[Rfam]
RNA: Fluoride riboswitch aptamer (crcB RNA motif)
Organism: Herbaspirillum sp. SJZ107
RNA sequence: UAAUGCUGUGGAAAUGGCAUUCUUCCACCGACAAACCGCCCUCGGGGCCGACGAUGCCUGCACUGCU
Numbered sequence: 001u002a003a004u005g006c007u008g009u010g011g012a013a014a015u016g017g018c019a020u021u022c023u024u025c026c027a028c029c030g031a032c033a034a035a036c037c038g039c040c041c042u043c044g045g046g047g048c049c050g051a052c053g054a055u056g057c058c059u060g061c062a063c064u065g066c067u
Base pairs, nucleotide, nucleotide: 010026011025012024013023016058017057018056019055020054021053038048039047040046